[Rfam]
RNA: Glm Y RNA activator of glmS mRNA
RNA sequence: AGUUGCUCAUUCAAUUUUUUAUGUCGGCCCGCACUAUGGCGGAAACAUGCCACAUAAGCCCGGGAAUGAUGCCAGAGUAAGGUGCCUACCGUCCGUUAAUACCGAUAACUGCGCAAGCUUUAUCAGACACAGGGCGACACGUUGAGUGAGGCACCACCUU
Numbered sequence: 001a002g003u004u005g006c007u008c009a010u011u012c013a014a015u016u017u018u019u020u021a022u023g024u025c026g027g028c029c030c031g032c033a034c035u036a037u038g039g040c041g042g043a044a045a046c047a048u049g050c051c052a053c054a055u056a057a058g059c060c061c062g063g064g065a066a067u068g069a070u071g072c073c074a075g076a077g078u079a080a081g082g083u084g085c086c087u088a089c090c091g092u093c094c095g096u097u098a099a100u101a102c103c104g105a106u107a108a109c110u111g112c113g114c115a116a117g118c119u120u121u122a123u124c125a126g127a128c129a130c131a132g133g134g135c136g137a138c139a140c141g142u143u144g145a146g147u148g149a150g151g152c153a154c155c156a157c158c159u160u
Stems, first nucleotide, its partner, number of pairs: 005072002007069006019057006026051003081155007090136005104124005138148003